This 180-nucleotide RNA sequence from Oryza sativa belongs to the Rfam family "MIR807 microRNA precursor family". The base pairs follow the family's consensus structure, which was predicted with WAR.
RNA sequence: AACCAUACUAUCAAUGAAUGGAUUCACCCGUGAUAUAACGUGGUUGUUUCACUUAGAACGAGGAUGUGACAUCCUAUUACCAGCCAUCGCACGAAAUUAAUAGGAUGCCACGUCCUCAUCCUAGGUGGAACAGCCAGGUCAUCUCACAGAUGAAUCGAUCCAUUCAUUAAUAGUUUGGUU
Numbered sequence: 001a002a003c004c005a006u007a008c009u010a011u012c013a014a015u016g017a018a019u020g021g022a023u024u025c026a027c028c029c030g031u032g033a034u035a036u037a038a039c040g041u042g043g044u045u046g047u048u049u050c051a052c053u054u055a056g057a058a059c060g061a062g063g064a065u066g067u068g069a070c071a072u073c074c075u076a077u078u079a080c081c082a083g084c085c086a087u088c089g090c091a092c093g094a095a096a097u098u099a100a101u102a103g104g105a106u107g108c109c110a111c112g113u114c115c116u117c118a119u120c121c122u123a124g125g126u127g128g129a130a131c132a133g134c135c136a137g138g139u140c141a142u143c144u145c146a147c148a149g150a151u152g153a154a155u156c157g158a159u160c161c162a163u164u165c166a167u168u169a170a171u172a173g174u175u176u177g178g179u180u
Stems, first nucleotide, its partner, number of pairs: 001180005007174001009172003013168003017164003021156006028149001030147004035142002038139002041136008051126002054123002058119001063114003070107010086097002